[Rfam]
RNA sequence: UAACUACAUAAUGCAGAUGGGCGGUUGACCAUCUCCUUUCGAAACGGAGGUGGUAUUAAUGGUGACUUAUGAAGCUAUGCAUUUGCUAUUUCAUUUCGGUAUGUUUAUUGUGACAUCCUUGACAGCGGUAAUAGCCAUAAUCACACUUGUCACCAAUAAGAAAGAGAAAUAACCGCCCAUUGACCGAAUGAUAGCGGUUACUUCUCUUGUACUUUCAUCUAUUUCUAAGGUCAGCCGCUCUUCUGGCGGCAAGUAGUUACAUGGAUCGAGUGUUCCAGCACUCGAU
Numbered sequence: 001u002a003a004c005u006a007c008a009u010a011a012u013g014c015a016g017a018u019g020g021g022c023g024g025u026u027g028a029c030c031a032u033c034u035c036c037u038u039u040c041g042a043a044a045c046g047g048a049g050g051u052g053g054u055a056u057u058a059a060u061g062g063u064g065a066c067u068u069a070u071g072a073a074g075c076u077a078u079g080c081a082u083u084u085g086c087u088a089u090u091u092c093a094u095u096u097c098g099g100u101a102u103g104u105u106u107a108u109u110g111u112g113a114c115a116u117c118c119u120u121g122a123c124a125g126c127g128g129u130a131a132u133a134g135c136c137a138u139a140a141u142c143a144c145a146c147u148u149g150u151c152a153c154c155a156a157u158a159a160g161a162a163a164g165a166g167a168a169a170u171a172a173c174c175g176c177c178c179a180u181u182g183a184c185c186g187a188a189u190g191a192u193a194g195c196g197g198u199u200a201c202u203u204c205u206c207u208u209g210u211a212c213u214u215u216c217a218u219c220u221a222u223u224u225c226u227a228a229g230g231u232c233a234g235c236c237g238c239u240c241u242u243c244u245g246g247c248g249g250c251a252a253g254u255a256g257u258u259a260c261a262u263g264g265a266u267c268g269a270g271u272g273u274u275c276c277a278g279c280a281c282u283c284g285a286u
Base pairs, nucleotide, nucleotide: 001259002258003257004256005255007253009251012233013232014182015181017180018179019178020177021176023174024173025172029053030052031051033049034048035047036046037044061154062153063152064151065150066149074089099146100145192221193220194219235249236248237247238246265286266285267284268283269282270281271280272279273278

BsrG: a 286-nucleotide sequence from Sutcliffiella cohnii.
The match comes from Rfam's covariance-model search (57 bits).
For this family Rfam cites "Novel small RNA-encoding genes in the intergenic regions of Bacillus subtilis" (Saito et al., Gene, 2008).
About the family: bsrE, bsrG and bsrH pair through intermolecular interactions with antisense sRNAs. They form type I toxin/antitoxin system that includes an mRNA encoding for a short, toxic peptide (bsrE, bsrG and bsrH) and an antitoxin that is comprised of an antisense RNA. bsrG encodes a 39-amino-acid toxin, and the 180 nucleotide antisense sRNA called SR4 acts as the antitoxin (they overlap by 123 nucleotides). SR4 interaction with the 3'UTR of bsrG RNA promotes bsrG degradation and inhibits its translation.
Pairs were carried over by alignment from the consensus structure, which was predicted with WAR.
The family has 6 seed sequences and 614 matches in Rfam 15.1.